[Rfam]
RNA sequence: AGCUGCGUGGUGAGCACAAAGCGAACUAUUCUUUCGCCUUUUACUAAAGAAUACCGUGUGCACGCCACUUUAAGCAGCAUACGCUAAUUUUUGAAGGGGUUGUUCCUUGUGGAAUGC
Number, nucleotide and partner (000 for none) at each position: 001a000002g000003c077004u076005g075006c074007g000008u067009g066010g065011u064012g063013a000014g061015c060016a059017c058018a057019a000020a000021g000022c000023g000024a000025a000026c000027u053028a052029u051030u050031c049032u048033u047034u046035c000036g000037c000038c000039u000040u000041u000042u000043a000044c000045u000046a034047a033048a032049g031050a030051a029052u028053a027054c000055c000056g000057u018058g017059u016060g015061c014062a000063c012064g011065c010066c009067a008068c000069u000070u000071u000072a000073a000074g006075c005076a004077g003078c000079a000080u000081a000082c000083g000084c000085u000086a000087a000088u000089u000090u000091u000092u000093g000094a000095a000096g000097g117098g000099g115100u114101u113102g000103u000104u000105c000106c000107u000108u000109g000110u000111g000112g000113a101114a100115u099116g000117c097
This 117-nucleotide sequence from Carex littledalei belongs to the Rfam family "U5 spliceosomal RNA". Taxonomically the source falls in Carex subgen. Euthyceras (Eukaryota, Viridiplantae, Embryophyta, Spermatophyta). U5 RNA is a component of both types of known spliceosome. The precise function of this molecule is unknown, though it is known that the 5' loop is required for splice site selection and p220 binding, and that both the 3' stem-loop and the Sm site are important for Sm protein binding and cap methylation. By type it is a spliceosomal small nuclear RNA.